[Rfam]
RNA: Group II catalytic intron D1-D4-3
RNA sequence: UCCACCGUGAGGUGGAAUCUGAAGGAAGCUCGAGGCAAAUCUCUGGUCUGACGAACAGAAAUCAUAUAGGAGGCAGUGCACGAGGAUAAGGUUGCAAAAGAAGCUGAAGUCCAAUAGCUAAUGUAUCAAUCGUGUGAUGUAGAUAUGGCAGAUAGAUGGAGAGAAAGAGUUCGCAC
Numbered sequence: 001u002c003c004a005c006c007g008u009g010a011g012g013u014g015g016a017a018u019c020u021g022a023a024g025g026a027a028g029c030u031c032g033a034g035g036c037a038a039a040u041c042u043c044u045g046g047u048c049u050g051a052c053g054a055a056c057a058g059a060a061a062u063c064a065u066a067u068a069g070g071a072g073g074c075a076g077u078g079c080a081c082g083a084g085g086a087u088a089a090g091g092u093u094g095c096a097a098a099a100g101a102a103g104c105u106g107a108a109g110u111c112c113a114a115u116a117g118c119u120a121a122u123g124u125a126u127c128a129a130u131c132g133u134g135u136g137a138u139g140u141a142g143a144u145a146u147g148g149c150a151g152a153u154a155g156a157u158g159g160a161g162a163g164a165a166a167g168a169g170u171u172c173g174c175a176c
Stems, first nucleotide, its partner, number of pairs: 001016006028176001031173002036167001040162006046153005062148006073140003077136007084112004090105004